The record is a 103-nucleotide RNA from Lepisosteus oculatus, which matches "mir-454 microRNA precursor family" in Rfam. Its family is annotated with miRNA-mediated post-transcriptional gene silencing and RISC complex in the Gene Ontology. Taxonomically the source falls in Lepisosteus (Eukaryota, Bilateria, Gnathostomata, Semionotiformes). The match comes from Rfam's covariance-model search (81 bits).
[Rfam]
RNA sequence: CACGAUCCACCUUCUAGACGAGACCCUAUCAAUAUUGCCUCUGCUUUUUGUGCAUAUGUGGAGUAGUGCAAUAUUGCUUAUAGGGUCUUGGUUUCGAAGGAAU
Numbered sequence: 001c002a003c004g005a006u007c008c009a010c011c012u013u014c015u016a017g018a019c020g021a022g023a024c025c026c027u028a029u030c031a032a033u034a035u036u037g038c039c040u041c042u043g044c045u046u047u048u049u050g051u052g053c054a055u056a057u058g059u060g061g062a063g064u065a066g067u068g069c070a071a072u073a074u075u076g077c078u079u080a081u082a083g084g085g086u087c088u089u090g091g092u093u094u095c096g097a098a099g100g101a102a103u
Base pairs, nucleotide, nucleotide: 020089021088022087023086024085025084026083027082028081029080030076031075032074033073034072035071036070037069038068041066042065043064044063045062